Shown here is a 67-nucleotide sequence from Oceanobacillus piezotolerans, a member of the family "Bacillaceae-1 RNA".

RNA sequence: AGGAGGGGUUCAAAGGCUAAGAACGCCCCAUCCUGGGGCAAGGCCUUUGUGACCAACGUCCUGUUGG
Numbered sequence: 001a002g003g004a005g006g007g008g009u010u011c012a013a014a015g016g017c018u019a020a021g022a023a024c025g026c027c028c029c030a031u032c033c034u035g036g037g038g039c040a041a042g043g044c045c046u047u048u049g050u051g052a053c054c055a056a057c058g059u060c061c062u063g064u065u066g067g
Stems, first nucleotide, its partner, number of pairs: 011049007025039005053067005

NCBI's taxonomy places the organism under Bacteria, Bacillota, Caryophanales, Bacillaceae, Oceanobacillus.